[Rfam]
RNA sequence: GCUGCGCGCGUGCCGAGUCCCCGCGCCUUGCGGGGAGCCGGGGACCCAAGUGUUUCCCCCGGGGUGAAUCCGCUCCCCCAGCGGUAGGGCGUCCUCCCGCCCGAACCCGUCAGCUAACCCGGUAGGCCGCCGAGAGGAGAGAC
Numbered sequence: 001g002c003u004g005c006g007c008g009c010g011u012g013c014c015g016a017g018u019c020c021c022c023g024c025g026c027c028u029u030g031c032g033g034g035g036a037g038c039c040g041g042g043g044a045c046c047c048a049a050g051u052g053u054u055u056c057c058c059c060c061g062g063g064g065u066g067a068a069u070c071c072g073c074u075c076c077c078c079c080a081g082c083g084g085u086a087g088g089g090c091g092u093c094c095u096c097c098c099g100c101c102c103g104a105a106c107c108c109g110u111c112a113g114c115u116a117a118c119c120c121g122g123u124a125g126g127c128c129g130c131c132g133a134g135a136g137g138a139g140a141g142a143c
Base pairs, nucleotide, nucleotide: 012127013126014125018036019035020034021033022032023031024030025029037123038122039121040120041119042118047061062108063107064106070084071083072082073081087102088101089100090099
RNA: c-di-AMP riboswitch aptamer (ydaO/yuaA leader)
Organism: Actinocorallia herbida